[Rfam]
The record is an 85-nucleotide RNA from Anopheles gambiae, which matches "mir-263 microRNA precursor family" in Rfam.
Clan: mir-182 clan.
The organism belongs to gambiae species complex, within Eukaryota.

RNA sequence: AAUUAUGGACCUUGGCACUGGGAGAAUUCACAGUGGAUCGUACCAUAUCGUUUCUGUGGAUCUUUUCGUGCCAUCGUUCAGAUUU
Numbered sequence: 001a002a003u004u005a006u007g008g009a010c011c012u013u014g015g016c017a018c019u020g021g022g023a024g025a026a027u028u029c030a031c032a033g034u035g036g037a038u039c040g041u042a043c044c045a046u047a048u049c050g051u052u053u054c055u056g057u058g059g060a061u062c063u064u065u066u067c068g069u070g071c072c073a074u075c076g077u078u079c080a081g082a083u084u085u
Base pairs, nucleotide, nucleotide: 004082006080007079008078009077010076013073014072015071016070017069020066021065022063024062025061028059029058030057031056032055033054